Rfam assigns this 95-nucleotide RNA from Kingdonia uniflora to the family "Small nucleolar RNA Z161/Z228". Pairs were carried over by alignment from the consensus structure, which was predicted with PFOLD. The family is grouped with related families in Rfam's "SNORD35 clan". Rfam links the family to the GO terms RNA processing and nucleolus. NCBI's taxonomy places the organism under Eukaryota, Streptophytina, Spermatophyta, Magnoliopsida, Kingdonia. A reference for the family is Chen et al. (2003), "The high diversity of snoRNAs in plants: identification and comparative study of 120 snoRNA genes from Oryza sativa", Nucleic Acids Res.
[Rfam]
RNA sequence: AAACCAGGUGAUGAAAAUGGAUUUAUAUCUCACGACGGUCAUCUGAGACAUUACGUUGUCAAUGUUGAAAAUAAUAUCCAUUUUUUCUGAUGGUU
Numbered sequence: 001a002a003a004c005c006a007g008g009u010g011a012u013g014a015a016a017a018u019g020g021a022u023u024u025a026u027a028u029c030u031c032a033c034g035a036c037g038g039u040c041a042u043c044u045g046a047g048a049c050a051u052u053a054c055g056u057u058g059u060c061a062a063u064g065u066u067g068a069a070a071a072u073a074a075u076a077u078c079c080a081u082u083u084u085u086u087c088u089g090a091u092g093g094u095u
Base pairs, nucleotide, nucleotide: 001095002094004092049058050057